[Rfam]
RNA sequence: CCAGAGGAUUGGGCAAUCGCGAAUUUUUAAUUCGAGGAAAGUCCGGGCUCCACAGAAGAUGGUGCCGGAUAACAUCCGGCGAAGGUAACUUUAGGGAAAGUGCAACAGAAAGAAGGUCGCAACGCCUUUGGGCAUGUGAAAUUGAAAGGGUGCGGUAAGAGCGCACCGCGUUGGCGGCAACGUCAAUGGCAUUGAAAACCCCACCAGGAGCAAGAUCAAAUAGGGACGAUAUGGAGCAAUCCACCCAAUUCUGAGGGAAUCGUCCGGGUUGAUUGCUUGAGGUAAUAAGUAAUUAUUGCCCCAGAUGAAUGAUUGCACAAAUGGGUUCGCCCAUUGGACAAAACCCGGCUUAUAGAUCCUCUGGAGUU
Numbered sequence: 001c002c003a004g005a006g007g008a009u010u011g012g013g014c015a016a017u018c019g020c021g022a023a024u025u026u027u028u029a030a031u032u033c034g035a036g037g038a039a040a041g042u043c044c045g046g047g048c049u050c051c052a053c054a055g056a057a058g059a060u061g062g063u064g065c066c067g068g069a070u071a072a073c074a075u076c077c078g079g080c081g082a083a084g085g086u087a088a089c090u091u092u093a094g095g096g097a098a099a100g101u102g103c104a105a106c107a108g109a110a111a112g113a114a115g116g117u118c119g120c121a122a123c124g125c126c127u128u129u130g131g132g133c134a135u136g137u138g139a140a141a142u143u144g145a146a147a148g149g150g151u152g153c154g155g156u157a158a159g160a161g162c163g164c165a166c167c168g169c170g171u172u173g174g175c176g177g178c179a180a181c182g183u184c185a186a187u188g189g190c191a192u193u194g195a196a197a198a199c200c201c202c203a204c205c206a207g208g209a210g211c212a213a214g215a216u217c218a219a220a221u222a223g224g225g226a227c228g229a230u231a232u233g234g235a236g237c238a239a240u241c242c243a244c245c246c247a248a249u250u251c252u253g254a255g256g257g258a259a260u261c262g263u264c265c266g267g268g269u270u271g272a273u274u275g276c277u278u279g280a281g282g283u284a285a286u287a288a289g290u291a292a293u294u295a296u297u298g299c300c301c302c303a304g305a306u307g308a309a310u311g312a313u314u315g316c317a318c319a320a321a322u323g324g325g326u327u328c329g330c331c332c333a334u335u336g337g338a339c340a341a342a343a344c345c346c347g348g349c350u351u352a353u354a355g356a357u358c359c360u361c362u363g364g365a366g367u368u
Base pairs, nucleotide, nucleotide: 001364002363003362004361005360006359007358008357009356010355011353013316014315015314016313017312018311020034021033022032023031024030025029039351040350041349043348044347045346046345047344048210049209050208051207056252058250060206061205062204063203064202065079066078067077068076069075080094081092082091083090084089095201096200100199101198103194104193117141119137120136122135124133125132126131149167150166151165152164153163154162168190169188170187171186172185173184174183175182176181214274215273216272217271224265225264226263227262228261229260245257246256281300282299283298284297285296286295287294288293